[Rfam]
RNA: Manganese Mn2+ riboswitch aptamer (yybP-ykoY)
Organism: Asticcacaulis excentricus
RNA sequence: CCUUCGGGGAGUAACCGCGCCUGAGCCUUGUUUCAGGCGGAUUACGUCAACACACUUGUCCGGCAUGGACAUGGCGUAAUCGAAACAGGUGAGACCGACGACCUGCCUUGCCGCCAUAAGUGACU
Numbered sequence: 001c002c003u004u005c006g007g008g009g010a011g012u013a014a015c016c017g018c019g020c021c022u023g024a025g026c027c028u029u030g031u032u033u034c035a036g037g038c039g040g041a042u043u044a045c046g047u048c049a050a051c052a053c054a055c056u057u058g059u060c061c062g063g064c065a066u067g068g069a070c071a072u073g074g075c076g077u078a079a080u081c082g083a084a085a086c087a088g089g090u091g092a093g094a095c096c097g098a099c100g101a102c103c104u105g106c107c108u109u110g111c112c113g114c115c116a117u118a119a120g121u122g123a124c125u
Base pairs, nucleotide, nucleotide: 019038020037021036040081041080042079043078044077045076046075047074048073049072057071058070059069060068061067